[Rfam]
RNA sequence: GCUGUGCACCCAUCACUACGGAUCGUCCGGCACGUACCUGCCGGUGAAGGAAAAUAAAA
Numbered sequence: 001g002c003u004g005u006g007c008a009c010c011c012a013u014c015a016c017u018a019c020g021g022a023u024c025g026u027c028c029g030g031c032a033c034g035u036a037c038c039u040g041c042c043g044g045u046g047a048a049g050g051a052a053a054a055u056a057a058a059a
Base pairs, nucleotide, nucleotide: 010050011049013047014046015045027044028043029042030041031040032039
RNA: msiK RNA
Organism: Candidatus Rhodoluna planktonica